Record summary: Shown here is a 210-nucleotide RNA sequence from Alkalihalobacillus alcalophilus, a member of the family "T-box leader". The family's consensus secondary structure is taken from published work. By type it is a cis-regulatory leader.
[Rfam]
RNA sequence: AUUUGUGUGUUGAAGGGUAAAAGUAGAAGACACUUUUGUAAAAAGUAGAGAACUGAUGGUCGGUGAAAAUCAGUACAAGGUGUGUUUGAAGUACGGACCUGGAGCAUUUCUUGUGAGUAGCAAGAAACGGUUACGCCGUUAUCGAAUCGAGUGGAAGUCUUUUUCGAAAGGCUUCAAUUAGGGUGGUAACGCGAUAACCUCGUCCCUUUG
Dot-bracket structure: ......((......((((.......(((.((.....(((............((((((...........)))))))))....)).))).........))))...))..(((((((.....))))))).(((.....)))...............(((((((........)))))))....((((.......((((.....))))))))...